[Rfam]
RNA sequence: GGGCACGUAGCUCAGUUCGGACAGAGCGUUCGGCUUCUAACCGAAAUGCCGGGGGUUCGAAUCCCUCCGUGCCCG
Numbered sequence: 001g002g003g004c005a006c007g008u009a010g011c012u013c014a015g016u017u018c019g020g021a022c023a024g025a026g027c028g029u030u031c032g033g034c035u036u037c038u039a040a041c042c043g044a045a046a047u048g049c050c051g052g053g054g055g056u057u058c059g060a061a062u063c064c065c066u067c068c069g070u071g072c073c074c075g
Stems, first nucleotide, its partner, number of pairs: 001074007010027004029045005051067005
A member of the RNA family "tRNA" from Halobacterium hubeiense, 75 nucleotides long. The organism belongs to Halobacterium, within Archaea. The family's RNA type in Rfam is transfer RNA.